[Rfam]
RNA sequence: AUACUUACCUGGCAGGGGCGAUACCAUGAUCAUGAAGGUGAUUUUUCCAAGGUGAGGCUUAUCUAUUGCACUCUGGAUGUGCUGACCUUUGCAAUUUCCUCAAAUGUGGGAAGCUCAACUACAUAAUUGGUGGUAGUGGGGGACUGUGUUCGUGCUUUCCCCUG
Numbered sequence: 001a002u003a004c005u006u007a008c009c010u011g012g013c014a015g016g017g018g019c020g021a022u023a024c025c026a027u028g029a030u031c032a033u034g035a036a037g038g039u040g041a042u043u044u045u046u047c048c049a050a051g052g053u054g055a056g057g058c059u060u061a062u063c064u065a066u067u068g069c070a071c072u073c074u075g076g077a078u079g080u081g082c083u084g085a086c087c088u089u090u091g092c093a094a095u096u097u098c099c100u101c102a103a104a105u106g107u108g109g110g111a112a113g114c115u116c117a118a119c120u121a122c123a124u125a126a127u128u129g130g131u132g133g134u135a136g137u138g139g140g141g142g143a144c145u146g147u148g149u150u151c152g153u154g155c156u157u158u159c160c161c162c163u164g
Stems, first nucleotide, its partner, number of pairs: 012122001014120002016048003020044002023042001025040003049090004054086001056083003060079005094115001095113003099109002138163006146155003

This 164-nucleotide sequence from Felis catus belongs to the Rfam family "U1 spliceosomal RNA". The family's RNA type in Rfam is spliceosomal small nuclear RNA. The source organism's lineage runs through Eukaryota, Eumetazoa, Amniota, Felinae and Felis. Rfam's curators write: U1 is a small nuclear RNA (snRNA) component of the spliceosome (involved in pre-mRNA splicing). Its 5' end forms complementary base pairs with the 5' splice junction, thus defining the 5' donor site of an intron. The family's consensus secondary structure is taken from published work.